[Rfam]
RNA sequence: UGGAAAUGAUGAAAUAGAGAUAAUUGGAUGUGCCUUUGAAUGGAGUGUGUGUGGUAACUGGGAUUUAAACCCAGUUUAGACUGGGGGUGGGGGGUGGGGAAUGUGUGUGUGGGUGCAGGUGUGGGGAAGGCUUUGAAUGGGGGCACUGAUGGUGCAGUGCUGCUUCCGGAGUGCAUCUGAGGCCUGUUGGGAAACUCUGGGGUGUUCCUUACAACAGUGCUGAUGAUUAAAGCCCCAAACAAGCCCACCAGGACAAGCCUGGGCAUCCUACAUCUCUGACAGCUUCACUGAUGCCAGUGAACCUGUGAGCUGAUCCAA
Numbered sequence: 001u002g003g004a005a006a007u008g009a010u011g012a013a014a015u016a017g018a019g020a021u022a023a024u025u026g027g028a029u030g031u032g033c034c035u036u037u038g039a040a041u042g043g044a045g046u047g048u049g050u051g052u053g054g055u056a057a058c059u060g061g062g063a064u065u066u067a068a069a070c071c072c073a074g075u076u077u078a079g080a081c082u083g084g085g086g087g088u089g090g091g092g093g094g095u096g097g098g099g100a101a102u103g104u105g106u107g108u109g110u111g112g113g114u115g116c117a118g119g120u121g122u123g124g125g126g127a128a129g130g131c132u133u134u135g136a137a138u139g140g141g142g143g144c145a146c147u148g149a150u151g152g153u154g155c156a157g158u159g160c161u162g163c164u165u166c167c168g169g170a171g172u173g174c175a176u177c178u179g180a181g182g183c184c185u186g187u188u189g190g191g192a193a194a195c196u197c198u199g200g201g202g203u204g205u206u207c208c209u210u211a212c213a214a215c216a217g218u219g220c221u222g223a224u225g226a227u228u229a230a231a232g233c234c235c236c237a238a239a240c241a242a243g244c245c246c247a248c249c250a251g252g253a254c255a256a257g258c259c260u261g262g263g264c265a266u267c268c269u270a271c272a273u274c275u276c277u278g279a280c281a282g283c284u285u286c287a288c289u290g291a292u293g294c295c296a297g298u299g300a301a302c303c304u305g306u307g308a309g310c311u312g313a314u315c316c317a318a
Base pairs, nucleotide, nucleotide: 001317002316003315004314185216186215187214188213189212191209193206194205195204197202

This 318-nucleotide sequence from Indicator maculatus belongs to the Rfam family "Small Cajal body-specific RNA 7". The match comes from Rfam's covariance-model search (156 bits). Pairs were carried over by alignment from the consensus structure. NCBI's taxonomy places the organism under Eukaryota, Teleostomi, Sauria, Telluraves, Indicator. Rfam classes the family as a small Cajal body RNA.